Shown here is a 145-nucleotide RNA sequence from Micrococcus luteus, a member of the family "FMN riboswitch aptamer (RFN element)". The match comes from Rfam's covariance-model search (76 bits). Taxonomically the source falls in Micrococcus luteus (Bacteria, Bacillati, Actinomycetota, Micrococcaceae). The RFN element is a highly conserved domain that is found frequently in the 5'-untranslated regions of prokaryotic mRNAs that encode for flavin mononucleotide (FMN) biosynthesis and transport proteins.

[Rfam]
RNA sequence: AACGUGCUCCGAGAUGCGGUGGAAGUCCGCACCGGCGGUGACAGCCCGCUAACCGCGCGGCCCGUCCUCAUCCGAGGCGGUGCCGGGCGGCCUGACCGGUGGAAUUCCGGUGCCGACCGUACAGUCGGGAUGGGAGAGGCACGCG
Numbered sequence: 001a002a003c004g005u006g007c008u009c010c011g012a013g014a015u016g017c018g019g020u021g022g023a024a025g026u027c028c029g030c031a032c033c034g035g036c037g038g039u040g041a042c043a044g045c046c047c048g049c050u051a052a053c054c055g056c057g058c059g060g061c062c063c064g065u066c067c068u069c070a071u072c073c074g075a076g077g078c079g080g081u082g083c084c085g086g087g088c089g090g091c092c093u094g095a096c097c098g099g100u101g102g103a104a105u106u107c108c109g110g111u112g113c114c115g116a117c118c119g120u121a122c123a124g125u126c127g128g129g130a131u132g133g134g135a136g137a138g139g140c141a142c143g144c145g
Base pairs, nucleotide, nucleotide: 003143004142005141006140007139008138010136017029018028019027031125032124033115034114035049036048037047038046044113045112053090054089055088056087095111096110097109098108099107117128118127119126